Overview
A member of the RNA family "mir-221 microRNA precursor family" from Polypterus senegalus, 83 nucleotides long. The base pairs follow the family's consensus structure, which was predicted with RNAalifold. The literature on the family includes a 2008 paper in J Virol by Yao et al., "MicroRNA profile of Marek's disease virus-transformed T-cell line MSB-1: predominance of virus-encoded microRNAs".
RNA sequence: UUCGGUAUGCACCUAGCAUCCAAUGUAGGUGAGCUGUGUAAAGGAAACCAGCUACAUUGCUUGCUGGGUUUGUGCUGAGUUUC
Numbered sequence: 001u002u003c004g005g006u007a008u009g010c011a012c013c014u015a016g017c018a019u020c021c022a023a024u025g026u027a028g029g030u031g032a033g034c035u036g037u038g039u040a041a042a043g044g045a046a047a048c049c050a051g052c053u054a055c056a057u058u059g060c061u062u063g064c065u066g067g068g069u070u071u072g073u074g075c076u077g078a079g080u081u082u083c
Stems, first nucleotide, its partner, number of pairs: 013067006021059008034051003